[Rfam]
RNA sequence: AAAUAUUAUAGGCACACCUAUUGAAAAAUAGGGUCGCAAAACUUGAGUCUAAGGCAUAUGCUAUGACCGUUCAGUUGCAAAA
Numbered sequence: 001a002a003a004u005a006u007u008a009u010a011g012g013c014a015c016a017c018c019u020a021u022u023g024a025a026a027a028a029u030a031g032g033g034u035c036g037c038a039a040a041a042c043u044u045g046a047g048u049c050u051a052a053g054g055c056a057u058a059u060g061c062u063a064u065g066a067c068c069g070u071u072c073a074g075u076u077g078c079a080a081a082a
Stems, first nucleotide, its partner, number of pairs: 012037002017032006040076004045072002047067003054061002

Rfam assigns this 82-nucleotide sequence from Petrocella atlantisensis to the family "c-di-GMP-I riboswitch aptamer".
The base pairs follow the family's consensus structure, which is taken from published work.
The organism belongs to Petrocella, within Bacteria.